[Rfam]
RNA sequence: AAAAGUCCCCAUCAAGGGGGUUGUACCCCAACCAGGAGCAACCUUACCGUAUUCAGAAUUU
Numbered sequence: 001a002a003a004a005g006u007c008c009c010c011a012u013c014a015a016g017g018g019g020g021u022u023g024u025a026c027c028c029c030a031a032c033c034a035g036g037a038g039c040a041a042c043c044u045u046a047c048c049g050u051a052u053u054c055a056g057a058a059u060u061u
Stems, first nucleotide, its partner, number of pairs: 017045008026036002
The record is a 61-nucleotide RNA from Leptolyngbya sp. 'hensonii', which matches "Plastid-psbN 5UTR RNA" in Rfam. A reference for the family is Zhelyazkova et al. (2012), "The primary transcriptome of barley chloroplasts: numerous noncoding RNAs and the dominating role of the plastid-encoded RNA polymerase", Plant Cell. The source organism's lineage runs through Bacteria, Bacillati, Leptolyngbyales, Leptolyngbyaceae and Leptolyngbya. Pairs were carried over by alignment from the consensus structure, which was predicted with LocARNA. The family's RNA type in Rfam is cis-regulatory element. A search with the family's covariance model found it, with a score of 59 bits. Rfam describes the family as follows. Plastid psbN is a non-coding RNA (ncRNA) recognised in plastids. It was reported as a conserved 11 stem-loop in the prime untranslated region (5UTR) of psbN genes. It has been reported that the motif is retained in a subset of mature transcripts in barley, which can suggests a possible role in transcript alternative 5 prime processing.